The record is a 155-nucleotide RNA from Cajanus cajan, which matches "small nucleolar RNA snoR137" in Rfam. The family's RNA type in Rfam is H/ACA-box small nucleolar RNA. The literature on the family includes a 2009 paper in Nucleic Acids Res by Chen and Wu, "Mining small RNA sequencing data: a new approach to identify small nucleolar RNAs in Arabidopsis". The match comes from Rfam's covariance-model search (57 bits). NCBI's taxonomy places the organism under Eukaryota, Tracheophyta, Spermatophyta, rosids, Cajanus.

[Rfam]
RNA sequence: GUUGCUUCCUCUGGUGAACCCUCCUUAUUCUCCAUUAGGGAUGUUCUUGUUUUCGAAGCAUAUAUAAAUAAAUUUGUCUCGAAUAACCAGUUUUAAACGGCGUGGUGUAAUUUUCUCUGGACUAAACCAUGCUACCUGUCUCUAGCGGUACAUAC
Numbered sequence: 001g002u003u004g005c006u007u008c009c010u011c012u013g014g015u016g017a018a019c020c021c022u023c024c025u026u027a028u029u030c031u032c033c034a035u036u037a038g039g040g041a042u043g044u045u046c047u048u049g050u051u052u053u054c055g056a057a058g059c060a061u062a063u064a065u066a067a068a069u070a071a072a073u074u075u076g077u078c079u080c081g082a083a084u085a086a087c088c089a090g091u092u093u094u095a096a097a098c099g100g101c102g103u104g105g106u107g108u109a110a111u112u113u114u115c116u117c118u119g120g121a122c123u124a125a126a127c128c129a130u131g132c133u134a135c136c137u138g139u140c141u142c143u144a145g146c147g148g149u150a151c152a153u154a155c
Base pairs, nucleotide, nucleotide: 003060004059005058006057007056008055016046017045018044019043021040022039023038086149087148088147091145092144099133100132101131103129104128105127106126